RNA sequence: UGCUCGUCCGGAGCCCCUUUUCUGUUGUACUACUGUGAAAUCAGAUGAGCAGUGCAAUAUUAAAAGGGCAUCGUAUGACCA
Number, nucleotide and partner (000 for none) at each position: 001u081002g080003c000004u000005c000006g076007u075008c000009c073010g072011g071012a000013g069014c068015c067016c066017c000018u064019u063020u062021u000022c000023u059024g058025u057026u056027g055028u054029a053030c052031u051032a000033c000034u000035g000036u000037g000038a000039a000040a000041u000042c000043a000044g000045a000046u000047g000048a000049g000050c000051a031052g030053u029054g028055c027056a026057a025058u024059a023060u000061u000062a020063a019064a018065a000066g016067g015068g014069c013070a000071u011072c010073g009074u000075a007076u006077g000078a000079c000080c002081a001
Description
Shown here is an 81-nucleotide RNA from Gouania willdenowi, a member of the family "mir-130 microRNA precursor family". Rfam 15.1 lists 2,580 matches to the family in 658 species. It scores 44 bits against the family's covariance model.